Rfam assigns this 86-nucleotide RNA sequence from Solanum tuberosum to the family "MIR8024 microRNA precursor family". Its family is annotated with miRNA-mediated post-transcriptional gene silencing and RISC complex in the Gene Ontology.
[Rfam]
RNA sequence: UUGAAGAAUUUGAAGACUUCAACUUGCAUACCUGCAGGAUUUAAAAACUUCUACAUACAUACUUCAAGAAUUUGAAAACUUCAACU
Number, nucleotide and partner (000 for none) at each position: 001u084002u083003g082004a081005a080006g079007a000008a000009u076010u075011u074012g073013a072014a071015g000016a000017c068018u067019u066020c000021a064022a000023c000024u000025u059026g058027c000028a056029u000030a000031c000032c000033u000034g051035c000036a049037g048038g000039a000040u000041u000042u000043a000044a000045a000046a000047a000048c037049u036050u000051c034052u000053a000054c000055a000056u028057a000058c026059a025060u000061a000062c000063u000064u021065c000066a019067a018068g017069a000070a000071u014072u013073u012074g011075a010076a009077a000078a000079c006080u005081u004082c003083a002084a001085c000086u000